[Rfam]
RNA sequence: GCUCCUACAAAAGUAAAAUGCAGGUGCUUUGCGACAGUGAGGAAAAUAAAGCCCAUACACUUUAACCCUUUAGGAGAG
Numbered sequence: 001g002c003u004c005c006u007a008c009a010a011a012a013g014u015a016a017a018a019u020g021c022a023g024g025u026g027c028u029u030u031g032c033g034a035c036a037g038u039g040a041g042g043a044a045a046a047u048a049a050a051g052c053c054c055a056u057a058c059a060c061u062u063u064a065a066c067c068c069u070u071u072a073g074g075a076g077a078g
Stems, first nucleotide, its partner, number of pairs: 002076006009070002013066002015063003019059002026052006

Rfam assigns this 78-nucleotide RNA sequence from Pan paniscus to the family "mir-350 microRNA precursor family". Gene Ontology terms of the family: RISC complex and miRNA-mediated post-transcriptional gene silencing. The family's consensus secondary structure was predicted with RNAalifold. A reference for the family is Poy et al. (2004), "A pancreatic islet-specific microRNA regulates insulin secretion", Nature. The source organism's lineage runs through Eukaryota, Chordata, Craniata, Haplorrhini and Pan.